[Rfam]
RNA sequence: UAAGUACGUAGUAACUGACGACGAGCGUGGAAUAAACCACAGGGGAGCUACGUCUAUGUAUAGCCGGUCGUCUGGGCGAAUAGG
Numbered sequence: 001u002a003a004g005u006a007c008g009u010a011g012u013a014a015c016u017g018a019c020g021a022c023g024a025g026c027g028u029g030g031a032a033u034a035a036a037c038c039a040c041a042g043g044g045g046a047g048c049u050a051c052g053u054c055u056a057u058g059u060a061u062a063g064c065c066g067g068u069c070g071u072c073u074g075g076g077c078g079a080a081u082a083g084g
Base pairs, nucleotide, nucleotide: 004055006053007052008051009050010049011048012047015044016043017072018071019070020069021068027040028039029038030037061079063077064076065075
Dot-bracket structure: ...(.(((((((..(([[[[[.....((((......))))..))..))))))).).....(.(((..]]]]]..))).).....
ZMP/ZTP riboswitch aptamer (pfl RNA motif): an 84-nucleotide RNA sequence from Bacillus yapensis.
The literature on the family includes a 2015 paper in Nat Struct Mol Biol by Jones and Ferre-D'Amare, "Recognition of the bacterial alarmone ZMP through long-distance association of two RNA subdomains".
The family's consensus secondary structure is taken from published work.
Its family is annotated with one-carbon metabolic process and regulation of purine nucleotide biosynthetic process in the Gene Ontology.